[Rfam]
The family of this 59-nucleotide RNA from Candidatus Methylomirabilis lanthanidiphila is "nhaA-I RNA". It is annotated as a riboswitch. Taxonomically the source falls in Methylomirabilis (SeqCode) (Bacteria, Bacteria candidate phyla, Methylomirabilia (SeqCode), Methylomirabilales (SeqCode)). About the family: Acidobacteria, Alphaproteobacteria, Betaproteobacteria and Gammaproteobacteria, Verrucomicrobia, cand. division NC10.
RNA sequence: AGGUCCGGGGAUAGCGAUUGGCUUUUUCCGGAGGGUAAAGGGUGGUCGGGCCGCCAUCC
Numbered sequence: 001a002g003g004u005c006c007g008g009g010g011a012u013a014g015c016g017a018u019u020g021g022c023u024u025u026u027u028c029c030g031g032a033g034g035g036u037a038a039a040g041g042g043u044g045g046u047c048g049g050g051c052c053g054c055c056a057u058c059c
Stems, first nucleotide, its partner, number of pairs: 005031007040059007